[Rfam]
RNA sequence: GGAGUUGGCCAGACAGUCGCCGCUUCGUGGUCGUCCCCUCGGGGAGACACACGGGGGGGAGGAAAGUCCGGGCUCCAUAGGGCAGGGUGCCAGGUAACGCCUGGGCGGCGCAAGCCGACGACUAGUGCAACAGAGAGCAAACCGCCGAUGGCCUGUGUUUCACAGGAUCAGGUAAGGGUGAAAGGGUGCGGUAAGAGCGCACCGCGCGACUGGUAACAGUUCGUGGCACGGUAAACUCCACCCGGAGCAAGACCAAAUAGGGGUUCAUUGGUGCGGCCCGCAUUGAACCCGGGUAGGUUGCUUGAGCCAGUGCGCGAGUGCUGGCCUAGAGGAAUGACUGUCCACGACAGAACCCGGCUUACCGGCCGACUCCCUCA
Numbered sequence: 001g002g003a004g005u006u007g008g009c010c011a012g013a014c015a016g017u018c019g020c021c022g023c024u025u026c027g028u029g030g031u032c033g034u035c036c037c038c039u040c041g042g043g044g045a046g047a048c049a050c051a052c053g054g055g056g057g058g059g060a061g062g063a064a065a066g067u068c069c070g071g072g073c074u075c076c077a078u079a080g081g082g083c084a085g086g087g088u089g090c091c092a093g094g095u096a097a098c099g100c101c102u103g104g105g106c107g108g109c110g111c112a113a114g115c116c117g118a119c120g121a122c123u124a125g126u127g128c129a130a131c132a133g134a135g136a137g138c139a140a141a142c143c144g145c146c147g148a149u150g151g152c153c154u155g156u157g158u159u160u161c162a163c164a165g166g167a168u169c170a171g172g173u174a175a176g177g178g179u180g181a182a183a184g185g186g187u188g189c190g191g192u193a194a195g196a197g198c199g200c201a202c203c204g205c206g207c208g209a210c211u212g213g214u215a216a217c218a219g220u221u222c223g224u225g226g227c228a229c230g231g232u233a234a235a236c237u238c239c240a241c242c243c244g245g246a247g248c249a250a251g252a253c254c255a256a257a258u259a260g261g262g263g264u265u266c267a268u269u270g271g272u273g274c275g276g277c278c279c280g281c282a283u284u285g286a287a288c289c290c291g292g293g294u295a296g297g298u299u300g301c302u303u304g305a306g307c308c309a310g311u312g313c314g315c316g317a318g319u320g321c322u323g324g325c326c327u328a329g330a331g332g333a334a335u336g337a338c339u340g341u342c343c344a345c346g347a348c349a350g351a352a353c354c355c356g357g358c359u360u361a362c363c364g365g366c367c368g369a370c371u372c373c374c375u376c377a
Base pairs, nucleotide, nucleotide: 001373002372003371004370005369006368007367008366009365010364012342013341014340015339016338017337018336020059021058023056024055025054026053027052028051064360065359066358068357069356070355071354072353073247074246075245076244080279081278082277083276085243086242087241088240089239090104091103092102093101094100105119106117107116108115109114120238121237125236126235127232128231142177143176144173145172146171149170150169151168153166154165185203186202187201188200189199190198204227205225206224207223208222209221210219211218212217251299252298253297254296261290262289263288264287265286266285270284271283272282273281274280306325307324308323309322310321311320312319313318